A member of the RNA family "tRNA" from Methanococcus maripaludis, 74 nucleotides long. It is one of the family's seed sequences.
RNA sequence: GGGCCCGUAGCUUAGUCUGGUAGAGCGCCUGACUUUUAAUCAGGCGGUCGAGGGUUCGAAUCCCUUCGGGCCCG
Number, nucleotide and partner (000 for none) at each position: 001g073002g072003g071004c070005c069006c068007g067008u000009a000010g026011c025012u024013u023014a000015g000016u000017c000018u000019g000020g000021u000022a000023g013024a012025g011026c010027g000028c044029c043030u042031g041032a040033c000034u000035u000036u000037u000038a000039a000040u032041c031042a030043g029044g028045c000046g000047g000048u000049c000050g066051a065052g064053g063054g062055u000056u000057c000058g000059a000060a000061u000062c054063c053064c052065u051066u050067c007068g006069g005070g004071c003072c002073c001074g000